[Rfam]
RNA sequence: AAGAGCAUUGAGUUGAUAAAGAUAGAGAAAAUUGACUCAGGAACAAA
Numbered sequence: 001a002a003g004a005g006c007a008u009u010g011a012g013u014u015g016a017u018a019a020a021g022a023u024a025g026a027g028a029a030a031a032u033u034g035a036c037u038c039a040g041g042a043a044c045a046a047a
Base pairs, nucleotide, nucleotide: 008040010038011037012036013035014034015033016032017031